[Rfam]
RNA sequence: AUUUUGCGUUAGGGAUUGAAGUGGAAAUCCUUUUUUGUGGCUUUUUCUGCCAUAAAAAAGAUUGUAGCGUAAAGCCCGACCCUUG
Numbered sequence: 001a002u003u004u005u006g007c008g009u010u011a012g013g014g015a016u017u018g019a020a021g022u023g024g025a026a027a028u029c030c031u032u033u034u035u036u037g038u039g040g041c042u043u044u045u046u047c048u049g050c051c052a053u054a055a056a057a058a059a060g061a062u063u064g065u066a067g068c069g070u071a072a073a074g075c076c077c078g079a080c081c082c083u084u085g
Stems, first nucleotide, its partner, number of pairs: 012077003016073002021068002026063004032058010
Record summary: Flavo-1 RNA: an 85-nucleotide sequence from Flavobacterium restrictum. The source organism's lineage runs through Bacteria, Bacteroidota, Flavobacteriia, Flavobacteriales and Flavobacterium. It is annotated as a small RNA.